Background
Shown here is a 73-nucleotide RNA sequence from Notechis scutatus, a member of the family "mir-1905 microRNA precursor family". Its family is annotated with miRNA-mediated post-transcriptional gene silencing and RISC complex in the Gene Ontology.

RNA sequence: GCGUUUGCUGCUGGAUGCGCUUGAUGGUGGCUCCUUUGGGGCCCACCACCAAGCCCACCACGCGGUAAGGCAC
Dot-bracket structure: ...(((((((((((..(...(.(.((((.(.(((....))).).))))).)...)..))).))))))))....
Numbered sequence: 001g002c003g004u005u006u007g008c009u010g011c012u013g014g015a016u017g018c019g020c021u022u023g024a025u026g027g028u029g030g031c032u033c034c035u036u037u038g039g040g041g042c043c044c045a046c047c048a049c050c051a052a053g054c055c056c057a058c059c060a061c062g063c064g065g066u067a068a069g070g071c072a073c
Stems, first nucleotide, its partner, number of pairs: 004069008012060003017055001021051001023049001025048004030043001032041003